[Rfam]
RNA sequence: GGUCCCGGCCAGCUUUGCAGGGUGGGCAGUCAGCCUGUGUGCCUUCCGAGCCGCUGUGCAAACCCAUGCAAAACUGACCGUGUCC
Numbered sequence: 001g002g003u004c005c006c007g008g009c010c011a012g013c014u015u016u017g018c019a020g021g022g023u024g025g026g027c028a029g030u031c032a033g034c035c036u037g038u039g040u041g042c043c044u045u046c047c048g049a050g051c052c053g054c055u056g057u058g059c060a061a062a063c064c065c066a067u068g069c070a071a072a073a074c075u076g077a078c079c080g081u082g083u084c085c
Stems, first nucleotide, its partner, number of pairs: 004082001006080003010076003014072006020065002023061001026059003032055003
Dot-bracket structure: ...(.(((.(((.((((((((.(..(((...(((..................))).))).)..)).)))))).))).))).)...
mir-19 microRNA precursor family: an 85-nucleotide sequence from Salarias fasciatus. It scores 51 bits against the family's covariance model. The family is grouped with related families in Rfam's "mir-19 clan". The family's consensus secondary structure was predicted with RNAalifold.